[Rfam]
RNA sequence: UGUGCUGUGGUGGGGAUUGUAGUUGAUGAAGACAUAGCCGCGCGACUGGUCGAUGCAGUGGAACAGUGGGUUCCAGUCGAACAUGGCCAGCAUGAAGGUCGGCAGGGUAUUGGCGAGGAACAUCUUGCCCGAGGCGAUCAUGUUGGCGCGCUG
Numbered sequence: 001u002g003u004g005c006u007g008u009g010g011u012g013g014g015g016a017u018u019g020u021a022g023u024u025g026a027u028g029a030a031g032a033c034a035u036a037g038c039c040g041c042g043c044g045a046c047u048g049g050u051c052g053a054u055g056c057a058g059u060g061g062a063a064c065a066g067u068g069g070g071u072u073c074c075a076g077u078c079g080a081a082c083a084u085g086g087c088c089a090g091c092a093u094g095a096a097g098g099u100c101g102g103c104a105g106g107g108u109a110u111u112g113g114c115g116a117g118g119a120a121c122a123u124c125u126u127g128c129c130c131g132a133g134g135c136g137a138u139c140a141u142g143u144u145g146g147c148g149c150g151c152u153g
Stems, first nucleotide, its partner, number of pairs: 002035003006032001008030001014024002039055002041052002064153005070082004086147009099133001100131003103127006110119002
Rfam assigns this 153-nucleotide RNA from Phaeobacter gallaeciensis to the family "Ruegeria cis2 sRNA". A search with the family's covariance model found it, with a score of 121 bits. Taxonomically the source falls in Phaeobacter (Bacteria, Pseudomonadota, Rhodobacterales, Roseobacteraceae). A reference for the family is Rivers et al. (2016), "Experimental Identification of Small Non-Coding RNAs in the Model Marine Bacterium Ruegeria pomeroyi DSS-3", Front Microbiol.